Annotation:
This 149-nucleotide RNA sequence from Catagonus wagneri belongs to the Rfam family "Small nucleolar RNA SNORA79". Lineage of the source: Eukaryota > Metazoa > Deuterostomia > Boreoeutheria > Catagonus. The family's RNA type in Rfam is H/ACA-box small nucleolar RNA. The family's consensus secondary structure was predicted with RNAalifold. It scores 114 bits against the family's covariance model. Rfam links the family to the GO terms RNA processing and nucleolus. Rfam describes the family as follows. ACA65 (SNORA79) is a member of the H/ACA class of snoRNAs that guide the sites of modification of uridines to pseudouridines. This snoRNA was identified by computational screening and its expression in mouse experimentally verified by Northern blot and primer extension analysis. The family has 25 seed sequences and 944 matches in Rfam 15.1.
RNA sequence: UGAUGGCUGUUCCUCUCACUGCUUGGAGCCUUAGGUAGUGGGAUUUUGGUCCAUCAUAUAUCUAAGCUGACUUGUCUUCACUCAGGGUACCAUGGGGAUGGGUUGGCUGUCCCCGUUAGUGCCUCUGAAUUUUGCGGAGUCAAACAAUG
Numbered sequence: 001u002g003a004u005g006g007c008u009g010u011u012c013c014u015c016u017c018a019c020u021g022c023u024u025g026g027a028g029c030c031u032u033a034g035g036u037a038g039u040g041g042g043a044u045u046u047u048g049g050u051c052c053a054u055c056a057u058a059u060a061u062c063u064a065a066g067c068u069g070a071c072u073u074g075u076c077u078u079c080a081c082u083c084a085g086g087g088u089a090c091c092a093u094g095g096g097g098a099u100g101g102g103u104u105g106g107c108u109g110u111c112c113c114c115g116u117u118a119g120u121g122c123c124u125c126u127g128a129a130u131u132u133u134g135c136g137g138a139g140u141c142a143a144a145c146a147a148u149g
Base pairs, nucleotide, nucleotide: 001056002055003054004053005052006051008049014043015042016041017040018039020037021036022035023034069141070140071139072138073137082128083127084126085125086124087122088121089120090119095114096113097112